Description:
Rfam assigns this 98-nucleotide RNA sequence from Sphaerisporangium album to the family "Guanidine-I riboswitch aptamer". Rfam's curators write: This family represents a conserved RNA structure found upstream of the ykkC and yxkD genes in Bacillus subtilis and related genes in other bacteria. The function of this family is unclear although it has been suggested that it may function to switch on efflux pumps and detoxification systems in response to harmful environmental molecules. The source organism's lineage runs through Bacteria, Bacillati, Streptosporangiales, Streptosporangiaceae and Sphaerisporangium.
RNA sequence: GUGAGGCGCACCUAGGGUUCCGCUCUCGUGACGAGGGGCUGGUCCGAGAGGUGCAGGCGGCCUAGGCCGCUCCACGGCGGGACAAAAACCCGGGAGAC
Numbered sequence: 001g002u003g004a005g006g007c008g009c010a011c012c013u014a015g016g017g018u019u020c021c022g023c024u025c026u027c028g029u030g031a032c033g034a035g036g037g038g039c040u041g042g043u044c045c046g047a048g049a050g051g052u053g054c055a056g057g058c059g060g061c062c063u064a065g066g067c068c069g070c071u072c073c074a075c076g077g078c079g080g081g082a083c084a085a086a087a088a089c090c091c092g093g094g095a096g097a098c
Stems, first nucleotide, its partner, number of pairs: 008054005015045002020042002022039001023037006056071006073093001075096001079091003